[Rfam]
RNA sequence: GAAUGAAAUGAUGAGUGUUAUACAAGUUUGAUAGCUGAUAUGAUGGCAGAUUAUCAUGUAUUAGCUCUAGCUGAUCAUUC
Numbered sequence: 001g002a003a004u005g006a007a008a009u010g011a012u013g014a015g016u017g018u019u020a021u022a023c024a025a026g027u028u029u030g031a032u033a034g035c036u037g038a039u040a041u042g043a044u045g046g047c048a049g050a051u052u053a054u055c056a057u058g059u060a061u062u063a064g065c066u067c068u069a070g071c072u073g074a075u076c077a078u079u080c
Base pairs, nucleotide, nucleotide: 002079003078004077005076034047035046036045
RNA: Small nucleolar RNA Z102/R77
Organism: Anisodus acutangulus